[Rfam]
RNA sequence: ACCUUGAAAACGCCGAAUUCUCAAGGAAGCGGAGGAACCGAUUUCGAUUUGGGGUGAAUUGCGGUGCAACGGGCAGGCUCUGAGCCCGAACCCGACAGCUAACUUCGCAGGCGUAGGGGGCUCAAGGU
Number, nucleotide and partner (000 for none) at each position: 001a000002c000003c000004u000005u000006g000007a000008a000009a000010a000011c113012g112013c111014c110015g000016a000017a000018u028019u027020c026021u000022c000023a000024a000025g000026g020027a019028a018029g108030c107031g106032g105033a104034g103035g000036a000037a000038c000039c051040g050041a000042u000043u000044u000045c000046g000047a000048u000049u000050u040051g039052g093053g092054g091055u000056g000057a000058a000059u000060u068061g067062c066063g000064g000065u000066g062067c061068a060069a000070c000071g087072g086073g085074c084075a000076g000077g000078c000079u000080c000081u000082g000083a000084g074085c073086c072087c071088g000089a000090a000091c054092c053093c052094g000095a000096c000097a000098g000099c000100u000101a000102a000103c034104u033105u032106c031107g030108c029109a000110g014111g013112c012113g011114u000115a000116g000117g000118g000119g000120g000121c000122u000123c000124a000125a000126g000127g000128u000